[Rfam]
RNA sequence: CGAUUAAAGUCAGACACGCCUGCGAGAGUUCAGUCUUUCCGGCAACGGGGGACGGACGCUCUCGCGUUUGGCGGGCCAGCGUCGGUUGGCAGUCGGACUGGAAAAGAUGGCAUGGAAUGUAGCAUGGGCUCCGGCACGUGUGUUUAUAGACUUGCUACCGAUACAGUCCGGCCGACCGAGGAACGCCGUCGUAGGACGCUGGCAGAAUGGCUUUAAACGACCCGUCUUGAAACACGG
Numbered sequence: 001c002g003a004u005u006a007a008a009g010u011c012a013g014a015c016a017c018g019c020c021u022g023c024g025a026g027a028g029u030u031c032a033g034u035c036u037u038u039c040c041g042g043c044a045a046c047g048g049g050g051g052a053c054g055g056a057c058g059c060u061c062u063c064g065c066g067u068u069u070g071g072c073g074g075g076c077c078a079g080c081g082u083c084g085g086u087u088g089g090c091a092g093u094c095g096g097a098c099u100g101g102a103a104a105a106g107a108u109g110g111c112a113u114g115g116a117a118u119g120u121a122g123c124a125u126g127g128g129c130u131c132c133g134g135c136a137c138g139u140g141u142g143u144u145u146a147u148a149g150a151c152u153u154g155c156u157a158c159c160g161a162u163a164c165a166g167u168c169c170g171g172c173c174g175a176c177c178g179a180g181g182a183a184c185g186c187c188g189u190c191g192u193a194g195g196a197c198g199c200u201g202g203c204a205g206a207a208u209g210g211c212u213u214u215a216a217a218c219g220a221c222c223c224g225u226c227u228u229g230a231a232a233c234a235c236g237g
Base pairs, nucleotide, nucleotide: 001219002218004216005215006214007213008212009211010210011209012208017073018072019071020070022067023066024065077201078200079199080198081197082196083195222237223236224235225234

Eukaryotic large subunit ribosomal RNA: a 237-nucleotide part of an RNA from Mixia osmundae. Rfam's curators put it in the seed alignment. Pairs were carried over by alignment from the consensus structure, which is taken from published work. On this family, see Yusupov et al., Science 2001: "Crystal structure of the ribosome at 5.5 A resolution".